Shown here is a 77-nucleotide sequence from Aquarana catesbeiana, a member of the family "mir-458 microRNA precursor family". The family has 12 seed sequences and 1,011 matches in Rfam 15.1. It scores 59 bits against the family's covariance model. The source organism's lineage runs through Eukaryota, Batrachia, Neobatrachia, Ranidae and Aquarana. A reference for the family is Glazov et al. (2008), "A microRNA catalog of the developing chicken embryo identified by a deep sequencing approach", Genome Res.
RNA sequence: GCACAUAUGGUAGUACCAUUCAAAGAGCUAUGACAAUGAUAGUGUUAUAGCUCAGAAAAUGGCGCUGCCAUCUGUAC
Numbered sequence: 001g002c003a004c005a006u007a008u009g010g011u012a013g014u015a016c017c018a019u020u021c022a023a024a025g026a027g028c029u030a031u032g033a034c035a036a037u038g039a040u041a042g043u044g045u046u047a048u049a050g051c052u053c054a055g056a057a058a059a060u061g062g063c064g065c066u067g068c069c070a071u072c073u074g075u076a077c
Stems, first nucleotide, its partner, number of pairs: 003075002007071003011067003016062005025053007